[Rfam]
The record is a 59-nucleotide sequence from Cellulomonas sp. JH27-2, which matches "msiK RNA" in Rfam.
The source organism's lineage runs through Bacteria, Bacillati, Micrococcales, Cellulomonadaceae and Cellulomonas.
By type it is a cis-regulatory element.

RNA sequence: ACUUGACACCUUUCACAACGGAUCGUCCGGCACGUACCUGCCGGUGAAGGGAAUGGUUC
Number, nucleotide and partner (000 for none) at each position: 001a000002c000003u000004u000005g000006a000007c000008a000009c051010c050011u049012u048013u047014c046015a045016c000017a000018a000019c000020g000021g000022a000023u000024c000025g000026u000027c044028c043029g042030g041031c040032a039033c000034g000035u000036a000037c000038c000039u032040g031041c030042c029043g028044g027045u015046g014047a013048a012049g011050g010051g009052a000053a000054u000055g000056g000057u000058u000059c000